A member of the RNA family "Small nucleolar RNA snoR100" from Rhododendron williamsianum, 107 nucleotides long. It is annotated as an H/ACA-box small nucleolar RNA. A reference for the family is Marker et al. (2002), "Experimental RNomics: identification of 140 candidates for small non-messenger RNAs in the plant Arabidopsis thaliana", Curr Biol. Taxonomically the source falls in Rhododendron (Eukaryota, Streptophyta, Spermatophyta, eudicotyledons). A search with the family's covariance model found it, with a score of 68 bits. The base pairs follow the family's consensus structure, which was predicted with WAR.
RNA sequence: GAAUGAAGGAAGCAUGGUAAUAUGCACAAAAAUUAAUUUGGGUCUCUAGGCCUACUCUCUGAUGUCUUUUGGAUGUGAUUUGGAGGGUAUGUUUUCACAGCAAAACG
Numbered sequence: 001g002a003a004u005g006a007a008g009g010a011a012g013c014a015u016g017g018u019a020a021u022a023u024g025c026a027c028a029a030a031a032a033u034u035a036a037u038u039u040g041g042g043u044c045u046c047u048a049g050g051c052c053u054a055c056u057c058u059c060u061g062a063u064g065u066c067u068u069u070u071g072g073a074u075g076u077g078a079u080u081u082g083g084a085g086g087g088u089a090u091g092u093u094u095u096c097a098c099a100g101c102a103a104a105a106c107g
Stems, first nucleotide, its partner, number of pairs: 012025004040090001042088003050079001052077001055072002